[Rfam]
RNA sequence: GAUUAAGCGCACAUGGUGGAUGCCUUGGCAGUUAGAGGCGAUGAAAGACGUAGGAGCCUGCGAUAAGGCUAGGGGAGCUGGCACACAAGCUUUGAUCCUAGCAUUUCUGAAUGGGGAAACCCACUGAGCUUGCUCAGUAUCGUGCACUGAAUACAUAGGUGUACGAGGCGAACCCGGGGAACUGAAACAUCUAAGUACCCGGAGGAAAAGAAAUCAACCGAGAUUCCCUAAGUAGCGGCGAGCGAAAGGGGAGCAGCCGAUGAUUUAAGAGGUAGUGGAACAGUCUGGAAAGUCUGGCGAUACAGGGUGAUAGCCCCGUACACGAAAUCUCUUAAGUCACAUAUUAAGUAGGACGGGACACGUGUUAUCUUGUCUGAAGAUGGGGGGACCAUCCUCCAAGGCUAAAUACUCCUAACUGACCGAUAGUGAACCAGUACCGUGAGGGAAAGGCGAAAAGAACCCCGGAGAGGGGAGUGAAAUAGAUCCUGAAACCGUGUGCGUACAAG
Numbered sequence: 001g002a003u004u005a006a007g008c009g010c011a012c013a014u015g016g017u018g019g020a021u022g023c024c025u026u027g028g029c030a031g032u033u034a035g036a037g038g039c040g041a042u043g044a045a046a047g048a049c050g051u052a053g054g055a056g057c058c059u060g061c062g063a064u065a066a067g068g069c070u071a072g073g074g075g076a077g078c079u080g081g082c083a084c085a086c087a088a089g090c091u092u093u094g095a096u097c098c099u100a101g102c103a104u105u106u107c108u109g110a111a112u113g114g115g116g117a118a119a120c121c122c123a124c125u126g127a128g129c130u131u132g133c134u135c136a137g138u139a140u141c142g143u144g145c146a147c148u149g150a151a152u153a154c155a156u157a158g159g160u161g162u163a164c165g166a167g168g169c170g171a172a173c174c175c176g177g178g179g180a181a182c183u184g185a186a187a188c189a190u191c192u193a194a195g196u197a198c199c200c201g202g203a204g205g206a207a208a209a210g211a212a213a214u215c216a217a218c219c220g221a222g223a224u225u226c227c228c229u230a231a232g233u234a235g236c237g238g239c240g241a242g243c244g245a246a247a248g249g250g251g252a253g254c255a256g257c258c259g260a261u262g263a264u265u266u267a268a269g270a271g272g273u274a275g276u277g278g279a280a281c282a283g284u285c286u287g288g289a290a291a292g293u294c295u296g297g298c299g300a301u302a303c304a305g306g307g308u309g310a311u312a313g314c315c316c317c318g319u320a321c322a323c324g325a326a327a328u329c330u331c332u333u334a335a336g337u338c339a340c341a342u343a344u345u346a347a348g349u350a351g352g353a354c355g356g357g358a359c360a361c362g363u364g365u366u367a368u369c370u371u372g373u374c375u376g377a378a379g380a381u382g383g384g385g386g387g388a389c390c391a392u393c394c395u396c397c398a399a400g401g402c403u404a405a406a407u408a409c410u411c412c413u414a415a416c417u418g419a420c421c422g423a424u425a426g427u428g429a430a431c432c433a434g435u436a437c438c439g440u441g442a443g444g445g446a447a448a449g450g451c452g453a454a455a456a457g458a459a460c461c462c463c464g465g466a467g468a469g470g471g472g473a474g475u476g477a478a479a480u481a482g483a484u485c486c487u488g489a490a491a492c493c494g495u496g497u498g499c500g501u502a503c504a505a506g
Stems, first nucleotide, its partner, number of pairs: 007501010022486001023450002027421002029418007036410002038169002046108003049062003068102007077090003113122003123138006140166009173204001174202005184191002214221002224406001225252005235243002255403004261339013275323003281296003285292001299303001305317003351375008382397005437444002460472004
RNA: Bacterial large subunit ribosomal RNA, nucleotides 9 to 514